A member of the RNA family "SAM riboswitch aptamer (S box leader)" from Peribacillus saganii, 149 nucleotides long. Rfam describes the family as follows. The SAM riboswitch is found upstream of a number of genes which code for proteins involved in methionine or cysteine biosynthesis in Gram-positive bacteria. The organism belongs to Peribacillus, within Bacteria. The match comes from Rfam's covariance-model search (71 bits).

RNA sequence: UUCUUAUCAAGAGCAGGUGGAGGGACUAGCCCGAUGAAGCCCGGCAACCGACCGAAUACCAUUUAUGAUGGGGCGCGAUAAAAGCGCCGGAUGUAAAAAUCCUAAAAGGCACGGUGCUAAUUCUAGCAGCGGCAGCUGAUAGAUGAGAA
Numbered sequence: 001u002u003c004u005u006a007u008c009a010a011g012a013g014c015a016g017g018u019g020g021a022g023g024g025a026c027u028a029g030c031c032c033g034a035u036g037a038a039g040c041c042c043g044g045c046a047a048c049c050g051a052c053c054g055a056a057u058a059c060c061a062u063u064u065a066u067g068a069u070g071g072g073g074c075g076c077g078a079u080a081a082a083a084g085c086g087c088c089g090g091a092u093g094u095a096a097a098a099a100u101c102c103u104a105a106a107a108g109g110c111a112c113g114g115u116g117c118u119a120a121u122u123c124u125a126g127c128a129g130c131g132g133c134a135g136c137u138g139a140u141a142g143a144u145g146a147g148a149a
Base pairs, nucleotide, nucleotide: 001149002148003147004146005145006144007143008142013042016041017040018039022032023031024030026126027125028124029123043118044117045116046115048114049113050110052108122141127138128137129136130135